[Rfam]
RNA sequence: GCAGCGGCUAGCCCGACGGGGCGAACACUGGUUCCCAUGACCAGCCCGCCGUUGUGUUUCUUGUUCAUGG
Numbered sequence: 001g002c003a004g005c006g007g008c009u010a011g012c013c014c015g016a017c018g019g020g021g022c023g024a025a026c027a028c029u030g031g032u033u034c035c036c037a038u039g040a041c042c043a044g045c046c047c048g049c050c051g052u053u054g055u056g057u058u059u060c061u062u063g064u065u066c067a068u069g070g
Stems, first nucleotide, its partner, number of pairs: 001055008011022004028044004035070006